mir-2 microRNA precursor family: a 64-nucleotide RNA sequence from Photinus pyralis. It scores 51 bits against the family's covariance model. The base pairs follow the family's consensus structure, which was predicted with PFOLD. Rfam links the family to the GO terms RISC complex and miRNA-mediated post-transcriptional gene silencing. The family has 56 seed sequences and 918 matches in Rfam 15.1. The source organism's lineage runs through Eukaryota, Pancrustacea, Coleoptera, Lampyridae and Photinus.
[Rfam]
RNA sequence: GUGCUCAUCAGUUGGUUGUGAAAUGGGUUUUGAAUCAUAUCACAGCCAGCUUUGAUGAGCGGAG
Numbered sequence: 001g002u003g004c005u006c007a008u009c010a011g012u013u014g015g016u017u018g019u020g021a022a023a024u025g026g027g028u029u030u031u032g033a034a035u036c037a038u039a040u041c042a043c044a045g046c047c048a049g050c051u052u053u054g055a056u057g058a059g060c061g062g063a064g
Stems, first nucleotide, its partner, number of pairs: 005058007013048009024039002